This 125-nucleotide RNA sequence from Rhizobium sp. Root149 belongs to the Rfam family "Alphaproteobacterial ar14". The base pairs follow the family's consensus structure. Rfam 15.1 lists 784 matches to the family in 332 species. Taxonomically the source falls in Rhizobium (Bacteria, Pseudomonadati, Pseudomonadota, Rhizobiaceae). About the family: Smr14C2 was renamed NfeR1 (Nodule Formation Efficiency RNA) highly expressed in salt stress and during the symbiotic interaction on legume roots.
RNA sequence: GACCAUCGAAGCGACGCACUCCUCCUCCCAGCGUCGCACGAUGAGAUCGGCAAUCUCCUCCUCCUCCCAAAUUGCCGAUCAGGUUUAAAAGCCUGCCGCACCUCCUCCCGCGGCAGGCUUUUUCA
Dot-bracket structure: ......((..(((((((.............))))))).))....((((((((((................))))))))))........(((((((((((..........))))))))))).....